The record is a 116-nucleotide RNA sequence from Bombilactobacillus apium, which matches "trpB ncRNA motif" in Rfam. Rfam describes the family as follows. trpB ncRNA motif was reported as a strong cis regulatory motif candidate, with potential to be a cis regulatory riboswitch type, it have been identified in Firmicutes and Fusobacteria. The motif have been recognised upstream of an uncharacterized ABC transporter with strong homology to amino acid transporters. It is also occasionally located upstream of trpB gene, that codes for a tryptophan synthase. Rfam links the family to the GO term regulation of gene expression. The source organism's lineage runs through Bacteria, Bacillati, Bacilli, Lactobacillales and Bombilactobacillus. The literature on the family includes a 2024 paper in Nucleic Acids Res by Narunsky et al., "The discovery of novel noncoding RNAs in 50 bacterial genomes". The family's consensus secondary structure is taken from published work. It is annotated as a cis-regulatory element.
RNA sequence: AGGGCGGAUUCAAUCUGGGACUUUUCAGAUUGAAUCCGUACCGGCUAGCCAAUUAAUAAUUUUAAAUUAAUUAAUGGAAGCUUGUACGGAUCCCACGUACGAGCUUCUUUUUUUUU
Numbered sequence: 001a002g003g004g005c006g007g008a009u010u011c012a013a014u015c016u017g018g019g020a021c022u023u024u025u026c027a028g029a030u031u032g033a034a035u036c037c038g039u040a041c042c043g044g045c046u047a048g049c050c051a052a053u054u055a056a057u058a059a060u061u062u063u064a065a066a067u068u069a070a071u072u073a074a075u076g077g078a079a080g081c082u083u084g085u086a087c088g089g090a091u092c093c094c095a096c097g098u099a100c101g102a103g104c105u106u107c108u109u110u111u112u113u114u115u116u
Stems, first nucleotide, its partner, number of pairs: 002041001004039008013030006079105010